[Rfam]
RNA sequence: GGUUUGUAGUCAAUCGCUACUAUGAAAAAUAGUAGAGGAAAGUCCAUGCUCACACAGGCUGUAAUGCCUGUAGCGUUUACGUAGGUUUAACAAAUAAAGCCUAGCUCAAAAAGAGACGACGAGAAUGAGCCUAAGUUCAUUUUCAUGAAUAAGGUGAUAUUUUCAUAAAGUGCCACAGAAACGAGUAUUAUUGAAAAAUAAUAGUGAAACGCGGUAAACUCCGUAAGUGAGAAACCUAAAAUUUGGUAAGGGAAUGUUCGACCGGGAAUAAAAACUGGAACAAUGACCAUCACAUGAUGGUAGAUAAAUGAUUGACAGCAAUGUAAUUCGCAUUGUUACAAAACAUGGCUUAUUCAA
Numbered sequence: 001g002g003u004u005u006g007u008a009g010u011c012a013a014u015c016g017c018u019a020c021u022a023u024g025a026a027a028a029a030u031a032g033u034a035g036a037g038g039a040a041a042g043u044c045c046a047u048g049c050u051c052a053c054a055c056a057g058g059c060u061g062u063a064a065u066g067c068c069u070g071u072a073g074c075g076u077u078u079a080c081g082u083a084g085g086u087u088u089a090a091c092a093a094a095u096a097a098a099g100c101c102u103a104g105c106u107c108a109a110a111a112a113g114a115g116a117c118g119a120c121g122a123g124a125a126u127g128a129g130c131c132u133a134a135g136u137u138c139a140u141u142u143u144c145a146u147g148a149a150u151a152a153g154g155u156g157a158u159a160u161u162u163u164c165a166u167a168a169a170g171u172g173c174c175a176c177a178g179a180a181a182c183g184a185g186u187a188u189u190a191u192u193g194a195a196a197a198a199u200a201a202u203a204g205u206g207a208a209a210c211g212c213g214g215u216a217a218a219c220u221c222c223g224u225a226a227g228u229g230a231g232a233a234a235c236c237u238a239a240a241a242u243u244u245g246g247u248a249a250g251g252g253a254a255u256g257u258u259c260g261a262c263c264g265g266g267a268a269u270a271a272a273a274a275c276u277g278g279a280a281c282a283a284u285g286a287c288c289a290u291c292a293c294a295u296g297a298u299g300g301u302a303g304a305u306a307a308a309u310g311a312u313u314g315a316c317a318g319c320a321a322u323g324u325a326a327u328u329c330g331c332a333u334u335g336u337u338a339c340a341a342a343a344c345a346u347g348g349c350u351u352a353u354u355c356a357a
Stems, first nucleotide, its partner, number of pairs: 004357003008353001009316007017035006040351003044348005049231005054071006077226005082103006104117001105115003118221002121164004129155004136149005170219002172215003186203007235251003255285004286301006318336007
Bacterial RNase P class B: a 357-nucleotide sequence from Mycoplasma amphoriforme. Ribonuclease P (RNase P) is a ubiquitous endoribonuclease, found in archaea, bacteria and eukarya as well as chloroplasts and mitochondria. The match comes from Rfam's covariance-model search (246 bits). The organism belongs to Mycoplasma amphoriforme, within Bacteria. It is annotated as a ribozyme.